[Rfam]
RNA: Small nucleolar RNA SNORA70
RNA sequence: CUGUAGCCAGUGAAGGCAACAGAGUUCCUUUCCUUUCCUCACGGGGCCCAGGGUGCAAUGCCGGCAAGCAGCAGUCUCCUUAGGAGUGUUACAACCUGCUGCCUGCACAGGUUGCUCUAGGGGACCUUGGAGACUCAU
Numbered sequence: 001c002u003g004u005a006g007c008c009a010g011u012g013a014a015g016g017c018a019a020c021a022g023a024g025u026u027c028c029u030u031u032c033c034u035u036u037c038c039u040c041a042c043g044g045g046g047c048c049c050a051g052g053g054u055g056c057a058a059u060g061c062c063g064g065c066a067a068g069c070a071g072c073a074g075u076c077u078c079c080u081u082a083g084g085a086g087u088g089u090u091a092c093a094a095c096c097u098g099c100u101g102c103c104u105g106c107a108c109a110g111g112u113u114g115c116u117c118u119a120g121g122g123g124a125c126c127u128u129g130g131a132g133a134c135u136c137a138u
Stems, first nucleotide, its partner, number of pairs: 002057004020051001022049001025046004083125001092114006
Dot-bracket structure: .((((..............(.(..((((..............))))..).)..)))).........................(........((((((...........))))))..........).............